The family of this 52-nucleotide RNA sequence from Oharaeibacter diazotrophicus is "serC leader". A reference for the family is Corbino et al. (2005), "Evidence for a second class of S-adenosylmethionine riboswitches and other regulatory RNA motifs in alpha-proteobacteria", Genome Biol. Pairs were carried over by alignment from the consensus structure. It scores 65 bits against the family's covariance model. Taxonomically the source falls in Oharaeibacter (Bacteria, Pseudomonadota, Alphaproteobacteria, Pleomorphomonadaceae). From the family's description: This family is a putative regulatory RNA structure that is found upstream of the serC-serA operon in some alpha-proteobacteria. The final stem of the structure overlaps the ribosome binding site of the serC reading frame. Rfam classes the family as a cis-regulatory leader.

Nucleotides: 052
Stems, first nucleotide, its partner, number of pairs: 011028006032047006
Number, partner (000 for none) and nucleotide at each position: 001000c002000g003000g004000c005000g006000g007000g008000a009000c010000a011028c012027u013026c014025c015024u016023c017000c018000c019000c020000a021000a022000c023016g024015a025014g026013g027012g028011g029000c030000g031000c032047c033046c034045a035044u036043c037042u038000g039000a040000g041000a042037g043036g044035a045034u046033g047032g048000a049000c050000a051000g052000a